[Rfam]
RNA sequence: GAUAGUAGCAGCAUAGUCGGGUGUGAAUCCCGAUCGCCGAAGGGGCCAGGUUUCCUUGGCAAUGUUCGUCAGCCAAGGGUUAGCCGGUCCUAAGAUAUGCCCUAACUGGAGCAUAUCAAAAGGGAAGCAGGUUAAUAUUCCUGCGCCAUCCAGUCUAUGCCUUAAGGCGUCCGACACUUCCGGGUAGAUUGAGCGGUGUCGUCGCACCGUCCAAGCACUGAAGCCUAUGGAGAGCCGUAAUGGCGAGAAGUAGGUGAAGGUGUGAUGGCGAAAGUCAGUCGAGCCCGGGAGUCCGUGAAAAGGAUGACUGGAUGUCCGUACCGAGAACCGACACAGGUGCCCCUAGCUGAGCAGGCUCAGGCGUGU
Numbered sequence: 001g002a003u004a005g006u007a008g009c010a011g012c013a014u015a016g017u018c019g020g021g022u023g024u025g026a027a028u029c030c031c032g033a034u035c036g037c038c039g040a041a042g043g044g045g046c047c048a049g050g051u052u053u054c055c056u057u058g059g060c061a062a063u064g065u066u067c068g069u070c071a072g073c074c075a076a077g078g079g080u081u082a083g084c085c086g087g088u089c090c091u092a093a094g095a096u097a098u099g100c101c102c103u104a105a106c107u108g109g110a111g112c113a114u115a116u117c118a119a120a121a122g123g124g125a126a127g128c129a130g131g132u133u134a135a136u137a138u139u140c141c142u143g144c145g146c147c148a149u150c151c152a153g154u155c156u157a158u159g160c161c162u163u164a165a166g167g168c169g170u171c172c173g174a175c176a177c178u179u180c181c182g183g184g185u186a187g188a189u190u191g192a193g194c195g196g197u198g199u200c201g202u203c204g205c206a207c208c209g210u211c212c213a214a215g216c217a218c219u220g221a222a223g224c225c226u227a228u229g230g231a232g233a234g235c236c237g238u239a240a241u242g243g244c245g246a247g248a249a250g251u252a253g254g255u256g257a258a259g260g261u262g263u264g265a266u267g268g269c270g271a272a273a274g275u276c277a278g279u280c281g282a283g284c285c286c287g288g289g290a291g292u293c294c295g296u297g298a299a300a301a302g303g304a305u306g307a308c309u310g311g312a313u314g315u316c317c318g319u320a321c322c323g324a325g326a327a328c329c330g331a332c333a334c335a336g337g338u339g340c341c342c343c344u345a346g347c348u349g350a351g352c353a354g355g356c357u358c359a360g361g362c363g364u365g366u
Base pairs, nucleotide, nucleotide: 016034017033018032019031020030021029035363036362037361038360043342044341045340046339049322050321054078055077056076057075058074059073063071064070085318086317087316089123090122094117095116096115097114098113099112101109102108127144128143129142130141131140147314148313149312150311151310152309153308154307170304171303172302176292177291178290179289180288181287182286183285184284187280188279189278190277191276193210194209195208196207197206215263216262217261218260224254225253226252227251228250234244235243236242269274328337329336345357346356347355

Rfam assigns this 366-nucleotide part of an RNA from a Candidatus Methanophagaceae archaeon to the family "Archaeal large subunit ribosomal RNA". A search with the family's covariance model found it, with a score of 2923 bits. Gene Ontology terms of the family: ribosome and structural constituent of ribosome.